RNA: Streptomyces-metH RNA
Organism: Streptomyces sp. CB01373
RNA sequence: CUCGUCCGCUUGGUGGACGCCGCGUCCGCCAGGGGCCGGUCCCGGCUACCCUGGCGGCGUGCGCCUCGCCCGGAGUGAGCCCUGCUCGCUUCACGGCAAGGCGCAAAGCCGACAGCCGUCGCACACCGAGGGAGCCCCUUCAUG
Numbered sequence: 001c002u003c004g005u006c007c008g009c010u011u012g013g014u015g016g017a018c019g020c021c022g023c024g025u026c027c028g029c030c031a032g033g034g035g036c037c038g039g040u041c042c043c044g045g046c047u048a049c050c051c052u053g054g055c056g057g058c059g060u061g062c063g064c065c066u067c068g069c070c071c072g073g074a075g076u077g078a079g080c081c082c083u084g085c086u087c088g089c090u091u092c093a094c095g096g097c098a099a100g101g102c103g104c105a106a107a108g109c110c111g112a113c114a115g116c117c118g119u120c121g122c123a124c125a126c127c128g129a130g131g132g133a134g135c136c137c138c139u140u141c142a143u144g
Stems, first nucleotide, its partner, number of pairs: 060105004065100002068097003108122002111120003